About this RNA:
Rfam assigns this 597-nucleotide part of an RNA from Daucus carota to the family "Archaeal large subunit ribosomal RNA". A reference for the family is Cannone et al. (2002), "The comparative RNA web (CRW) site: an online database of comparative sequence and structure information for ribosomal, intron, and other RNAs", BMC Bioinformatics. The source organism's lineage runs through Eukaryota, Mesangiospermae, Scandiceae, Daucus sect. Daucus and Daucus carota. Rfam links the family to the GO terms ribosome and structural constituent of ribosome.

RNA sequence: UCAGCGGGGAAAGAAGACCCUGUUGAGCUUGACUCUAGUCCGACUUUGGGAUGAUGAGAGGUGUAGGAUAAGUGGGAGCCGGAAACGGCGAAAGUGAAAUACCACUACUUUUACGUUAUUUUACUUAUUCCGUGAAUCGGAAGCGGGGCACUGCCCCUCUUUUUAGACCAAAGGCUCGCUUGCGGGCCAAUCCGGGCGGAAGACAUUGUCAGGUGGGGUUUGGCUGGGGCGGCACUCUGUUAAAGAUAACGAGGUGUCCUAAGAUGAGCUCAACGAGAACAGAAAUCUCGUGUGGAACAGAAGGGUAAAAGCUCGUUUGAUUCUGAUUUCCAGUAGAAUACGAACCGUGAAAGCGUGGCCUAACGAUCCUUUAGACCUUCGGAAUUUGAAGCUAGAGGUGUCAGAAAAGUUACCACAGGGAUAACUGGCUUGUGGCAGCCAAGCGUGUCAUGCGACGUUGCUUUUUGAUCCUUCGAUGUCGCUCUUCCUAUCAUUGUGAAGCAGAAUUCACCAGUGUUGGAUUGUUCACCCACCAAUAGGGAACGUUAGCUGGGUUUAGACCGUCGUGGACAGGUUAGUUUUACCCUACUGAUGACA
Numbered sequence: 001u002c003a004g005c006g007g008g009g010a011a012a013g014a015a016g017a018c019c020c021u022g023u024u025g026a027g028c029u030u031g032a033c034u035c036u037a038g039u040c041c042g043a044c045u046u047u048g049g050g051a052u053g054a055u056g057a058g059a060g061g062u063g064u065a066g067g068a069u070a071a072g073u074g075g076g077a078g079c080c081g082g083a084a085a086c087g088g089c090g091a092a093a094g095u096g097a098a099a100u101a102c103c104a105c106u107a108c109u110u111u112u113a114c115g116u117u118a119u120u121u122u123a124c125u126u127a128u129u130c131c132g133u134g135a136a137u138c139g140g141a142a143g144c145g146g147g148g149c150a151c152u153g154c155c156c157c158u159c160u161u162u163u164u165a166g167a168c169c170a171a172a173g174g175c176u177c178g179c180u181u182g183c184g185g186g187c188c189a190a191u192c193c194g195g196g197c198g199g200a201a202g203a204c205a206u207u208g209u210c211a212g213g214u215g216g217g218g219u220u221u222g223g224c225u226g227g228g229g230c231g232g233c234a235c236u237c238u239g240u241u242a243a244a245g246a247u248a249a250c251g252a253g254g255u256g257u258c259c260u261a262a263g264a265u266g267a268g269c270u271c272a273a274c275g276a277g278a279a280c281a282g283a284a285a286u287c288u289c290g291u292g293u294g295g296a297a298c299a300g301a302a303g304g305g306u307a308a309a310a311g312c313u314c315g316u317u318u319g320a321u322u323c324u325g326a327u328u329u330c331c332a333g334u335a336g337a338a339u340a341c342g343a344a345c346c347g348u349g350a351a352a353g354c355g356u357g358g359c360c361u362a363a364c365g366a367u368c369c370u371u372u373a374g375a376c377c378u379u380c381g382g383a384a385u386u387u388g389a390a391g392c393u394a395g396a397g398g399u400g401u402c403a404g405a406a407a408a409g410u411u412a413c414c415a416c417a418g419g420g421a422u423a424a425c426u427g428g429c430u431u432g433u434g435g436c437a438g439c440c441a442a443g444c445g446u447g448u449c450a451u452g453c454g455a456c457g458u459u460g461c462u463u464u465u466u467g468a469u470c471c472u473u474c475g476a477u478g479u480c481g482c483u484c485u486u487c488c489u490a491u492c493a494u495u496g497u498g499a500a501g502c503a504g505a506a507u508u509c510a511c512c513a514g515u516g517u518u519g520g521a522u523u524g525u526u527c528a529c530c531c532a533c534c535a536a537u538a539g540g541g542a543a544c545g546u547u548a549g550c551u552g553g554g555u556u557u558a559g560a561c562c563g564u565c566g567u568g569g570a571c572a573g574g575u576u577a578g579u580u581u582u583a584c585c586c587u588a589c590u591g592a593u594g595a596c597a
Base pairs, nucleotide, nucleotide: 001592002591003590004589007587008586009585011582012581019419020418021417022416024415025414026411027410028409029408030407032219033218039213040212042210043209044208048124049121050120051119052118053117054116055115056114057111058110059109060108071106072105073104074103075102078089079088080087128201129200130199131198132197133196222235223233224232225231237254238253240252258358259357264316265315266314267313268312269311270296271295273291274290275289276288277287278286297306298305321344322343323342326339327338328337329336346355348353369397370396371395372394373393377391378390379389380388428469430467432466434462435461436460437459438458439457443453444452480553481550482549483548484545485542486541487540488539489538492516493515496511497510498509499508500507518532519531520530522528559576560575561574562573563571564570565569
Dot-bracket structure: ((((..(((.((......((((.(((((((.((.....((.(((...(((((((((((((..........(((((..(((......)))............))))).))))..))))))))..)...((((((..............................................................))))))......))).))....))..((((.....))).).((.(...........)))...((....((((((((.((((((.......))))))...))((......))....))))))....(((..((((......))))..))).(.(....).).))..........(((((...((((.......)))).))))).........)))))..))))))........(.(.(.((((((...((.......))...))))))...)).)..........((((((((((..((..(((((......)))))...)).(((.(.....).))).....)))))..)..)))..).....(((((((...))).))))....))..))).)))).....